[Rfam]
RNA sequence: AAUGGAAUCUGUAGGAACCAUGUGGGCAAAUGAAAAAUACCUUUGUCCUCAAAAUGCAGUGAUCCUACAGAAAUGUGGAGGGCUCUGUUUUUCUUAGGACAGCUGACUAAGGCUUGAUCAUUCCCUCCCAUAUAGC
Numbered sequence: 001a002a003u004g005g006a007a008u009c010u011g012u013a014g015g016a017a018c019c020a021u022g023u024g025g026g027c028a029a030a031u032g033a034a035a036a037a038u039a040c041c042u043u044u045g046u047c048c049u050c051a052a053a054a055u056g057c058a059g060u061g062a063u064c065c066u067a068c069a070g071a072a073a074u075g076u077g078g079a080g081g082g083c084u085c086u087g088u089u090u091u092u093c094u095u096a097g098g099a100c101a102g103c104u105g106a107c108u109a110a111g112g113c114u115u116g117a118u119c120a121u122u123c124c125c126u127c128c129c130a131u132a133u134a135g136c
Stems, first nucleotide, its partner, number of pairs: 004065003009059004021051002024048004032044003077129002080126002087118003092112006